Rfam assigns this 69-nucleotide RNA sequence from Desulfosarcina ovata to the family "int-alpA RNA".

[Rfam]
RNA sequence: UUCGUGGAUAGGGGGACGCCCCGAACCGCCGGUCUCCCUGGGUCGGCUUUCCACGGAUCACUACCAGGG
Numbered sequence: 001u002u003c004g005u006g007g008a009u010a011g012g013g014g015g016a017c018g019c020c021c022c023g024a025a026c027c028g029c030c031g032g033u034c035u036c037c038c039u040g041g042g043u044c045g046g047c048u049u050u051c052c053a054c055g056g057a058u059c060a061c062u063a064c065c066a067g068g069g
Base pairs, nucleotide, nucleotide: 001057002056003055004054005053006052007051008050011022012021013020014019028047029046030045031044032043036069037068038067039066040065

Rfam's curators write: Acidobacteria (1 example), Planctomycetes (1 example), Proteobacteria.